A member of the RNA family "SAM riboswitch aptamer (S box leader)" from Mucilaginibacter xinganensis, 200 nucleotides long. Gene Ontology term of the family: regulation of gene expression.
[Rfam]
RNA sequence: CGCUUAUCCAGAAAGACUGAGGGAAAAGGCCCUGUGAAGUCUUAGCAACCUGUAUUUAGAGCAAAGUCUAAAGUCAUGAGUCCCGAGUCAAAAAAAAUUAAAACAGCAAAUUUUAAUAAAGACUUAAGAUUGUAAACUCAAGACUAUAGACUCGAUAAAAGGUGCUAACUCCUGCUCCGCCCUGCGGAGAAAGAUAGGUU
Numbered sequence: 001c002g003c004u005u006a007u008c009c010a011g012a013a014a015g016a017c018u019g020a021g022g023g024a025a026a027a028g029g030c031c032c033u034g035u036g037a038a039g040u041c042u043u044a045g046c047a048a049c050c051u052g053u054a055u056u057u058a059g060a061g062c063a064a065a066g067u068c069u070a071a072a073g074u075c076a077u078g079a080g081u082c083c084c085g086a087g088u089c090a091a092a093a094a095a096a097a098u099u100a101a102a103a104c105a106g107c108a109a110a111u112u113u114u115a116a117u118a119a120a121g122a123c124u125u126a127a128g129a130u131u132g133u134a135a136a137c138u139c140a141a142g143a144c145u146a147u148a149g150a151c152u153c154g155a156u157a158a159a160a161g162g163u164g165c166u167a168a169c170u171c172c173u174g175c176u177c178c179g180c181c182c183u184g185c186g187g188a189g190a191a192a193g194a195u196a197g198g199u200u
Stems, first nucleotide, its partner, number of pairs: 002199007013043005021032003027173003044166004049162002051158001053157004170192001175189006